[Rfam]
RNA sequence: CGCUGGCGUUGAAGCGAGAGGUUGCGACACGCCUGGGAGCAUUGCCAUGGACAGGCUGUUGGAAAUUUUCGUGGAGCUAUGUCUACUUUUAAAAUAGGCGAGGA
Numbered sequence: 001c002g003c004u005g006g007c008g009u010u011g012a013a014g015c016g017a018g019a020g021g022u023u024g025c026g027a028c029a030c031g032c033c034u035g036g037g038a039g040c041a042u043u044g045c046c047a048u049g050g051a052c053a054g055g056c057u058g059u060u061g062g063a064a065a066u067u068u069u070c071g072u073g074g075a076g077c078u079a080u081g082u083c084u085a086c087u088u089u090u091a092a093a094a095u096a097g098g099c100g101a102g103g104a
Base pairs, nucleotide, nucleotide: 014072015071016070018069019068020067021066025061026060027059028058029057082104083103086102087101088100
RNA: S10-Clostridia ribosomal protein leader